Record summary: This 65-nucleotide sequence from Pan troglodytes belongs to the Rfam family "mir-155 microRNA precursor family". Rfam 15.1 lists 647 matches to the family in 617 species. Gene Ontology terms of the family: miRNA-mediated post-transcriptional gene silencing and RISC complex.
RNA sequence: CUGUUAAUGCUAAUCGUGAUAGGGGUUUUUGCCUCCAAAUGACUCCUACAUAUUAGCAUUAACAG
Dot-bracket structure: ...(((((((((((.....((((.(((.............))).))))...)))))))))))...